The record is a 110-nucleotide RNA from Kluyvera genomosp. 3, which matches "TPP riboswitch aptamer (THI element)" in Rfam. About the family: Vitamin B(1) in its active form thiamin pyrophosphate (TPP) is an essential coenzyme that is synthesised by coupling of pyrimidine and thiazole moieties in bacteria.
RNA sequence: UACUUCUUGUCGGAGUGCCUGGUGCGUAAGCACGGGCUGAGACCGUUAAUUCGGGAUCCGCGGAACCUGAUCAGGUUAAGACCUGCGAAGGGAACAAGAGUAAUUCAGCU
Numbered sequence: 001u002a003c004u005u006c007u008u009g010u011c012g013g014a015g016u017g018c019c020u021g022g023u024g025c026g027u028a029a030g031c032a033c034g035g036g037c038u039g040a041g042a043c044c045g046u047u048a049a050u051u052c053g054g055g056a057u058c059c060g061c062g063g064a065a066c067c068u069g070a071u072c073a074g075g076u077u078a079a080g081a082c083c084u085g086c087g088a089a090g091g092g093a094a095c096a097a098g099a100g101u102a103a104u105u106c107a108g109c110u
Stems, first nucleotide, its partner, number of pairs: 006098005011060004016054001017037005044053002066091003072085004